[Rfam]
Nucleotides: 200
Stems, first nucleotide, its partner, number of pairs: 018053006031043002034040001054192004064109004068101010079090003116188005125179006131150003138146002156172002159170004
Number, partner (000 for none) and nucleotide at each position: 001000g002000a003000g004000a005000a006000c007000u008000g009000a010000u011000a012000u013000u014000u015000c016000g017000a018053g019052a020051a021050g022049u023048c024000a025000a026000a027000u028000g029000a030000g031043a032042g033000a034040g035000u036000a037000a038000c039000g040034u041000c042032u043031u044000g045000a046000a047000g048023g049022g050021c051020u052019u053018c054192c055191u056190u057189u058000g059000a060000u061000a062000c063000u064109c065108c066107g067106a068101c069100u070099a071098g072097c073096a074095c075094u076093g077092a078000c079090g080089c081088u082000a083000a084000u085000a086000a087000g088081a089080g090079u091000u092077u093076u094075g095074g096073u097072g098071u099070u100069a101068g102000a103000a104000g105000u106067u107066c108065g109064g110000u111000a112000a113000a114000g115000a116188c117187g118186g119185c120184u121000g122000a123000g124000a125179g126178u127177g128176c129175a130174u131150c132149c133148u134000a135000a136000c137000a138146g139145g140000c141000u142000a143000u144000g145139c146138u147000g148133a149132g150131g151000a152000a153000a154000a155000g156172c157171g158000a159170a160169c161168c162167a163000g164000a165000g166000g167162u168161g169160g170159u171157c172156g173000a174130a175129u176128g177127u178126a179125u180000g181000a182000u183000a184120g185119g186118u187117c188116g189057g190056g191055a192054g193000u194000c195000c196000a197000u198000a199000a200000a

Record summary: Shown here is a 200-nucleotide RNA from Clostridium oryzae, a member of the family "Group II catalytic intron D1-D4-5". The pairing is the family consensus, mapped onto this sequence. A reference for the family is Bonen and Vogel (2001), "The ins and outs of group II introns", Trends Genet. Rfam links the family to the GO term Group II intron splicing. Rfam 15.1 lists 720 matches to the family in 418 species. It scores 158 bits against the family's covariance model. Rfam's curators write: Group II introns are found in rRNA, tRNA and mRNA of organelles in fungi, plants and protists, and also in mRNA in bacteria.